[Rfam]
RNA sequence: AGCUGCGUCGGGCGAUCGGGAAACUCAUCAAUUAUUACAAAUUCCGAGAUAAGCAGUAUAUCGUAAUGGCGGGCCGCACCUUCGGGCAUUGCUUGCAAUGAUAACAGCGGAUUACAAAGCGUUUACUGCCCUCAAAUCCUAUCUUUCGGAGUUUUUACGUUAUCCUCCGGCGUGGCUUUUUUA
Number, nucleotide and partner (000 for none) at each position: 001a000002g000003c000004u000005g000006c000007g000008u000009c000010g000011g000012g000013c000014g000015a000016u000017c000018g000019g000020g000021a000022a000023a000024c000025u000026c000027a000028u000029c000030a000031a000032u000033u000034a000035u000036u000037a000038c000039a000040a000041a000042u000043u000044c000045c000046g000047a000048g000049a000050u000051a000052a000053g129054c128055a127056g000057u000058a000059u000060a123061u000062c121063g120064u119065a000066a000067u116068g115069g000070c000071g000072g000073g000074c110075c109076g108077c107078a000079c086080c085081u000082u000083c000084g000085g080086g079087c000088a000089u104090u103091g102092c000093u000094u000095g000096c000097a000098a000099u000100g000101a000102u091103a090104a089105c000106a000107g077108c076109g075110g074111a000112u000113u000114a000115c068116a067117a000118a000119g064120c063121g062122u000123u060124u000125a000126c000127u055128g054129c053130c000131c000132u000133c000134a000135a000136a000137u000138c000139c000140u000141a000142u000143c000144u000145u000146u000147c000148g000149g000150a000151g000152u000153u000154u000155u000156u000157a000158c000159g000160u000161u000162a000163u000164c000165c000166u000167c000168c000169g000170g000171c000172g000173u000174g000175g000176c000177u000178u000179u000180u000181u000182u000183a000
Background: This 183-nucleotide RNA sequence from Porphyromonas sp. COT-108 OH1349 belongs to the Rfam family "Bacteroidales-1 6S-Bacteroidales RNA suggested". Rfam classes the family as a small RNA. Bacteroidales-1 was first reported in a comparative genomics-based approach of genome and metagenome sequences from Weinberg et al. 2010 In a high-resolution transcriptome map study of Bacteroides thetaiotaomicron, Ryan et al. 2020 report this sRNA as 6S RNA homologue of Bacteroides, in the study they obtain evidence of small product RNAs (pRNAs) related to 6S function. Lineage of the source: Bacteria > Bacteroidota > Bacteroidales > Porphyromonadaceae > Porphyromonas.